[Rfam]
Small nucleolar RNA SNORD101: an 82-nucleotide RNA sequence from Poecile atricapillus. The family has 26 seed sequences and 658 matches in Rfam 15.1. It is annotated as a C/D-box small nucleolar RNA. Its family is annotated with RNA processing and nucleolus in the Gene Ontology. For this family Rfam cites "Identification of 13 novel human modification guide RNAs" (Vitali et al., Nucleic Acids Res, 2003). Lineage of the source: Eukaryota > Craniata > Teleostomi > Amniota > Poecile.
RNA sequence: GUUUGGAUGAUGACUUAUAACUUUAAUGUUAGUCGGAUACCCCUUCACUCAUCCUGUGAGUGAGAACUGCUGUCUGACAAAC
Numbered sequence: 001g002u003u004u005g006g007a008u009g010a011u012g013a014c015u016u017a018u019a020a021c022u023u024u025a026a027u028g029u030u031a032g033u034c035g036g037a038u039a040c041c042c043c044u045u046c047a048c049u050c051a052u053c054c055u056g057u058g059a060g061u062g063a064g065a066a067c068u069g070c071u072g073u074c075u076g077a078c079a080a081a082c
Stems, first nucleotide, its partner, number of pairs: 001082005